RNA sequence: AUAUAUAAUUUAAUAUGUCGUCGUAUAACGUUGGGAAUAAGGCCCAAAAGUCUCUACCGAAUCACCGUAAAUGAUUCGACUACGAUUAAGAGGAAGAAGGAU
Numbered sequence: 001a002u003a004u005a006u007a008a009u010u011u012a013a014u015a016u017g018u019c020g021u022c023g024u025a026u027a028a029c030g031u032u033g034g035g036a037a038u039a040a041g042g043c044c045c046a047a048a049a050g051u052c053u054c055u056a057c058c059g060a061a062u063c064a065c066c067g068u069a070a071a072u073g074a075u076u077c078g079a080c081u082a083c084g085a086u087u088a089a090g091a092g093g094a095a096g097a098a099g100g101a102u
Base pairs, nucleotide, nucleotide: 018088020086021085022084023083024082025081031047032046033045034044035043058078059077060076061075062074063073064072